The family of this 192-nucleotide RNA sequence from Pseudomonas sp. 1239 is "Pseudomonas sRNA P27". NCBI's taxonomy places the organism under Bacteria, Pseudomonadota, Gammaproteobacteria, Pseudomonadales, Pseudomonas. The literature on the family includes a 2006 paper in Nucleic Acids Res by Livny et al., "Identification of 17 Pseudomonas aeruginosa sRNAs and prediction of sRNA-encoding genes in 10 diverse pathogens using the bioinformatic tool sRNAPredict2". It scores 186 bits against the family's covariance model.
RNA sequence: CGGGUAAAACUCCUGCUUGUUACCGUUUCAUCCAGCCGAAGCCGAAUGUCGUUUUGGUGUCUGACUCGGUAAGGAAUCAGGGGCACCAUCUGCGUAGGCUUGAGGUUUAAGGCUUGCGCCGCCUACGGUCUUGGAUAGCCCCCGCCAGGCAGGGACCCCAAUUUUUGCUGACGGGCGCAAUUGCUCGCGCCC
Numbered sequence: 001c002g003g004g005u006a007a008a009a010c011u012c013c014u015g016c017u018u019g020u021u022a023c024c025g026u027u028u029c030a031u032c033c034a035g036c037c038g039a040a041g042c043c044g045a046a047u048g049u050c051g052u053u054u055u056g057g058u059g060u061c062u063g064a065c066u067c068g069g070u071a072a073g074g075a076a077u078c079a080g081g082g083g084c085a086c087c088a089u090c091u092g093c094g095u096a097g098g099c100u101u102g103a104g105g106u107u108u109a110a111g112g113c114u115u116g117c118g119c120c121g122c123c124u125a126c127g128g129u130c131u132u133g134g135a136u137a138g139c140c141c142c143c144g145c146c147a148g149g150c151a152g153g154g155a156c157c158c159c160a161a162u163u164u165u166u167g168c169u170g171a172c173g174g175g176c177g178c179a180a181u182u183g184c185u186c187g188c189g190c191c192c
Base pairs, nucleotide, nucleotide: 002158003157004156005155012149013148014147015146024051025050029048030047031046033044035042036041055088056087057086058085059084060083061080062079063078064077066075067074092145093144094143097140098139099138100137105136106135107134108133109132110131111130112129113128114127174191175190176189177188178187